[Rfam]
RNA sequence: UACGCGGCCCAGCCGAGCCGCUGCGCCCAGGGCGUAGCGGGCGGGGGAACCAAGGUCCGCGCUGAUCGCUCAGCGAUCUGUGCGUACAGGGGCGAAUCGGCCGGUGUUCCGGCUGUAGCGCGAGCGCAGGAGGCAGCCCCGCGCGAGCCCGUCAGCUAACUCCGUAGGCAGGGCCGGGAAAGGAG
Numbered sequence: 001u002a003c004g005c006g007g008c009c010c011a012g013c014c015g016a017g018c019c020g021c022u023g024c025g026c027c028c029a030g031g032g033c034g035u036a037g038c039g040g041g042c043g044g045g046g047g048a049a050c051c052a053a054g055g056u057c058c059g060c061g062c063u064g065a066u067c068g069c070u071c072a073g074c075g076a077u078c079u080g081u082g083c084g085u086a087c088a089g090g091g092g093c094g095a096a097u098c099g100g101c102c103g104g105u106g107u108u109c110c111g112g113c114u115g116u117a118g119c120g121c122g123a124g125c126g127c128a129g130g131a132g133g134c135a136g137c138c139c140c141g142c143g144c145g146a147g148c149c150c151g152u153c154a155g156c157u158a159a160c161u162c163c164g165u166a167g168g169c170a171g172g173g174c175c176g177g178g179a180a181a182g183g184a185g
Base pairs, nucleotide, nucleotide: 012169013168014167018040019039020038021037022036023035024034025033026032027031041165042164043163044162045161046160051089090150091149092148098115099114100113101112118144119143120142121141
This 185-nucleotide RNA from Thermoleophilum album belongs to the Rfam family "c-di-AMP riboswitch aptamer (ydaO/yuaA leader)". Rfam describes the family as follows. This family represents a conserved RNA structure found upstream of the ydaO and yuaA genes in Bacillus subtilis and related genes in other bacteria.